[Rfam]
RNA sequence: UUGUAUAACCAACGUUUAGCAGAGCCUUACUCAAGACUCGUGGUUACAAUUUUUGAAAACCUUUCUCGUUAUUGAGAGGGUUG
Numbered sequence: 001u002u003g004u005a006u007a008a009c010c011a012a013c014g015u016u017u018a019g020c021a022g023a024g025c026c027u028u029a030c031u032c033a034a035g036a037c038u039c040g041u042g043g044u045u046a047c048a049a050u051u052u053u054u055g056a057a058a059a060c061c062u063u064u065c066u067c068g069u070u071a072u073u074g075a076g077a078g079g080g081u082u083g
Base pairs, nucleotide, nucleotide: 022039023038024037026035027034028033058082059081060080061079062078063077065076066075067074

The family of this 83-nucleotide sequence from Caenorhabditis angaria is "SmY spliceosomal RNA". Rfam classes the family as a spliceosomal small nuclear RNA. It scores 54 bits against the family's covariance model.